Description: The family of this 383-nucleotide part of an RNA from Clavispora lusitaniae is "Eukaryotic large subunit ribosomal RNA". The family's consensus secondary structure is taken from published work. NCBI's taxonomy places the organism under Eukaryota, Opisthokonta, Serinales, Clavispora, Clavispora lusitaniae.
[Rfam]
RNA sequence: GACCGUUGUUGCAAUAGUAAUUGAACUUAGUACGAGAGGAACCGUUCAUUCAGAUAAUUGGUAUUUGGCCCUGUCUGAUCAGGCACCGGGCCGAAGCUACCAUCUGCUGGAUUAUGGCUGAAACGCCUCUAAGUCAGAAUCCAUGCUAGAAGCGACGACUCUGCCUCGCGCGUUGCAGUUGGAUACAAAUACGAUGUGGACCAUACAAGGCGGCGUUUGGCGGCGGUGCGGAAAGGCGCUGUCGCUGGCUGCGGAUAGCAAUGUCUCGAUGCGCGGGGAUAAAUCCUUUGCAUACGACUUAGAUGUACAACGGAGUAUUGUAAGCGGUAGAGUAGCCUUGUUGUUACGAUCCGCUGAGAUUAAGCUCUUGUUGGCUGGUUUGU
Numbered sequence: 001g002a003c004c005g006u007u008g009u010u011g012c013a014a015u016a017g018u019a020a021u022u023g024a025a026c027u028u029a030g031u032a033c034g035a036g037a038g039g040a041a042c043c044g045u046u047c048a049u050u051c052a053g054a055u056a057a058u059u060g061g062u063a064u065u066u067g068g069c070c071c072u073g074u075c076u077g078a079u080c081a082g083g084c085a086c087c088g089g090g091c092c093g094a095a096g097c098u099a100c101c102a103u104c105u106g107c108u109g110g111a112u113u114a115u116g117g118c119u120g121a122a123a124c125g126c127c128u129c130u131a132a133g134u135c136a137g138a139a140u141c142c143a144u145g146c147u148a149g150a151a152g153c154g155a156c157g158a159c160u161c162u163g164c165c166u167c168g169c170g171c172g173u174u175g176c177a178g179u180u181g182g183a184u185a186c187a188a189a190u191a192c193g194a195u196g197u198g199g200a201c202c203a204u205a206c207a208a209g210g211c212g213g214c215g216u217u218u219g220g221c222g223g224c225g226g227u228g229c230g231g232a233a234a235g236g237c238g239c240u241g242u243c244g245c246u247g248g249c250u251g252c253g254g255a256u257a258g259c260a261a262u263g264u265c266u267c268g269a270u271g272c273g274c275g276g277g278g279a280u281a282a283a284u285c286c287u288u289u290g291c292a293u294a295c296g297a298c299u300u301a302g303a304u305g306u307a308c309a310a311c312g313g314a315g316u317a318u319u320g321u322a323a324g325c326g327g328u329a330g331a332g333u334a335g336c337c338u339u340g341u342u343g344u345u346a347c348g349a350u351c352c353g354c355u356g357a358g359a360u361u362a363a364g365c366u367c368u369u370g371u372u373g374g375c376u377g378g379u380u381u382g383u
Stems, first nucleotide, its partner, number of pairs: 005159008015148004020050001022048005051106005059099003066093005072085005108143003115136005165277007281381005286302002290298001308373005313367003317360002324354004329350001332347005